Notes:
The record is a 132-nucleotide RNA from Actinoplanes sp. SE50/110, which matches "c-di-AMP riboswitch aptamer (ydaO/yuaA leader)" in Rfam. The source organism's lineage runs through Bacteria, Actinomycetota, Actinomycetes, Micromonosporaceae and Actinoplanes. Gene Ontology terms of the family: cyclic-di-AMP binding and regulation of gene expression.
[Rfam]
RNA sequence: GACGAACCACCGCCCAAUCGCCCGUAACGGCGAGCCGGGGAACCAGGUAAGUGGGGUGUAGCCGUUCGCGGCCGGGCGUUCUUCCCGCCCGAACCCGUCAGCUAACCCGGUCGGCGGCUGAAUGGAAGAAAG
Dot-bracket structure: ..........((((...(((((......)))))((((((....((......))(((.....(((....)))..((((.........))))...))).........)))))).))))................